A member of the RNA family "Iron response element II" from Cuculus canorus, 31 nucleotides long. Its family is annotated with response to iron ion in the Gene Ontology. The match comes from Rfam's covariance-model search (36 bits). On this family, see Koeller et al., Proc Natl Acad Sci U S A 1989: "A cytosolic protein binds to structural elements within the iron regulatory region of the transferrin receptor mRNA". IRE, TFRC, SLC40A1, SDHB, SLC11A2, CDC42BPA, ACO2, ALAS2_H.SAPIENS, CDC14A, EPAS1, ALAS2, qoxD, Hao1, NDUFS1, transferrin, Aconitate. Rfam classes the family as a cis-regulatory element.

RNA sequence: CCGACUUCAGCCACAGUGCUGGCUAAGUCGG
Numbered sequence: 001c002c003g004a005c006u007u008c009a010g011c012c013a014c015a016g017u018g019c020u021g022g023c024u025a026a027g028u029c030g031g
Stems, first nucleotide, its partner, number of pairs: 001031007009024005014018001